[Rfam]
RNA sequence: UGUUUUUGAGGUCGGAAAUGGUUCCCGACACACUCUGUAAAGAGUACCUGAGAUGAUGGAUACACCGCCCAUCCAGAGAUA
Numbered sequence: 001u002g003u004u005u006u007u008g009a010g011g012u013c014g015g016a017a018a019u020g021g022u023u024c025c026c027g028a029c030a031c032a033c034u035c036u037g038u039a040a041a042g043a044g045u046a047c048c049u050g051a052g053a054u055g056a057u058g059g060a061u062a063c064a065c066c067g068c069c070c071a072u073c074c075a076g077a078g079a080u081a
Stems, first nucleotide, its partner, number of pairs: 001081008011029005019067004031050001032045004055073005
This 81-nucleotide RNA sequence belongs to the Rfam family "skipping-rope RNA". Pairs were carried over by alignment from the consensus structure, which is taken from published work. The sequence is in the family's curated seed alignment.